[Rfam]
RNA sequence: UGCAGAUGAUGAUUUUUCUCACGAUGGUCUUCCAAGCCUUCAUGGUUCUGACGAUAGUGCCUUUUGGCAAUACUGAUGCAGUUAC
Numbered sequence: 001u002g003c004a005g006a007u008g009a010u011g012a013u014u015u016u017u018c019u020c021a022c023g024a025u026g027g028u029c030u031u032c033c034a035a036g037c038c039u040u041c042a043u044g045g046u047u048c049u050g051a052c053g054a055u056a057g058u059g060c061c062u063u064u065u066g067g068c069a070a071u072a073c074u075g076a077u078g079c080a081g082u083u084a085c
Stems, first nucleotide, its partner, number of pairs: 001080004

Rfam assigns this 85-nucleotide RNA sequence from Liparis tanakae to the family "Small nucleolar RNA SNORD35". Pairs were carried over by alignment from the consensus structure, which was predicted with PFOLD. The family's RNA type in Rfam is C/D-box small nucleolar RNA. For this family Rfam cites "Intron-encoded, antisense small nucleolar RNAs: the characterization of nine novel species points to their direct role as guides for the 2'-O-ribose methylation of rRNAs" (Nicoloso et al., J Mol Biol, 1996). The family has 8 seed sequences and 1,842 matches in Rfam 15.1. Rfam describes the family as follows. U35 is a C/D box snoRNA located in intron 6 of ribosomal protein L13A and intron 3 of ribosomal protein S11 in humans and at homologous positions in mouse and chicken ribosomal protein genes. U35 guides the methylation of 2'-O-ribose sites in 28S rRNA. Clan: SNORD35 clan.